[Rfam]
Shown here is an 85-nucleotide RNA sequence from Haemophilus influenzae, a member of the family "sRNA-Xcc1". Rfam classes the family as a small RNA.

Nucleotides: 085
Base pairs, nucleotide, nucleotide: 001077002076003075004074005073006072007071008070009069012043013042014041015039016038025034026033027032046061047060048059049058
Number, partner (000 for none) and nucleotide at each position: 001077g002076c003075c004074g005073a006072g007071u008070g009069g010000g011000c012043g013042a014041c015039u016038a017000a018000u019000a020000c021000a022000a023000u024000a025034c026033c027032c028000g029000a030000a031000a032027g033026g034025g035000g036000a037000a038016u039015a040000u041014g042013u043012c044000c045000a046061g047060c048059u049058g050000a051000c052000u053000u054000a055000c056000u057000g058049c059048a060047g061046c062000c063000u064000u065000c066000g067000a068000a069009c070008c071007a072006c073005u074004u075003g076002g077001c078000g079000c080000c081000c082000a083000a084000c085000u